[Rfam]
RNA: Molybdenum/Tungsten riboswitch aptamer (Moco RNA motif)
Organism: Syntrophomonas wolfei
RNA sequence: AAACUAAAUAUACUCCGAGCCUGAAAACCUGGUAAUAAUACUAAGGGUUUCAGGCCUGUAGGGUACGGCGGGAAACGGCCGGGCCUCCCAUGGUGGAAAGGAGAAAUCAAAUGCGCUUA
Numbered sequence: 001a002a003a004c005u006a007a008a009u010a011u012a013c014u015c016c017g018a019g020c021c022u023g024a025a026a027a028c029c030u031g032g033u034a035a036u037a038a039u040a041c042u043a044a045g046g047g048u049u050u051c052a053g054g055c056c057u058g059u060a061g062g063g064u065a066c067g068g069c070g071g072g073a074a075a076c077g078g079c080c081g082g083g084c085c086u087c088c089c090a091u092g093g094u095g096g097a098a099a100g101g102a103g104a105a106a107u108c109a110a111a112u113g114c115g116c117u118u119a
Stems, first nucleotide, its partner, number of pairs: 011105001013103004019055008028046002031042004061086004066081004071076001087096002